[Rfam]
RNA sequence: GUGGGCUACGGCGACAUGAAGCCGGUCGGUCUGUGGGGCAAGCUCGUCGGGUCGCUCUGCGCCAUUGCCGGCGUGCUCACGAUCGCCUUGCCUGUGCCAGUCAUCGUCUCCAAC
Numbered sequence: 001g002u003g004g005g006c007u008a009c010g011g012c013g014a015c016a017u018g019a020a021g022c023c024g025g026u027c028g029g030u031c032u033g034u035g036g037g038g039c040a041a042g043c044u045c046g047u048c049g050g051g052u053c054g055c056u057c058u059g060c061g062c063c064a065u066u067g068c069c070g071g072c073g074u075g076c077u078c079a080c081g082a083u084c085g086c087c088u089u090g091c092c093u094g095u096g097c098c099a100g101u102c103a104u105c106g107u108c109u110c111c112a113a114c
Stems, first nucleotide, its partner, number of pairs: 001114002004111002008107004013102003018097001020095001037077004049063002
RNA: Potassium channel RNA editing signal
Organism: Plectus sambesii